The family of this 150-nucleotide RNA sequence from Paraburkholderia humisilvae is "Group II catalytic intron D1-D4-7". For this family Rfam cites "Group II introns: structure and catalytic versatility of large natural ribozymes" (Lehmann and Schmidt, Crit Rev Biochem Mol Biol, 2003). Rfam links the family to the GO term Group II intron splicing. Pairs were carried over by alignment from the consensus structure. The match comes from Rfam's covariance-model search (114 bits).
[Rfam]
RNA sequence: CCGAUUGUUCCGUCAAUCGUACCCUACCGGUGCAUGCUGGAUUGGUAACGGUCUGGUGUGAAGCCACCGGAACAACGUAACCCGUUCAUUGAACGACGUCGCGCUCGCGAGAAAGUGACGUUGUCUGCCAGCGUCGAGGCGGAUGGGGUG
Numbered sequence: 001c002c003g004a005u006u007g008u009u010c011c012g013u014c015a016a017u018c019g020u021a022c023c024c025u026a027c028c029g030g031u032g033c034a035u036g037c038u039g040g041a042u043u044g045g046u047a048a049c050g051g052u053c054u055g056g057u058g059u060g061a062a063g064c065c066a067c068c069g070g071a072a073c074a075a076c077g078u079a080a081c082c083c084g085u086u087c088a089u090u091g092a093a094c095g096a097c098g099u100c101g102c103g104c105u106c107g108c109g110a111g112a113a114a115g116u117g118a119c120g121u122u123g124u125c126u127g128c129c130a131g132c133g134u135c136g137a138g139g140c141g142g143a144u145g146g147g148g149u150g
Stems, first nucleotide, its partner, number of pairs: 002019006028069005033060012083095005097120004105112002124143006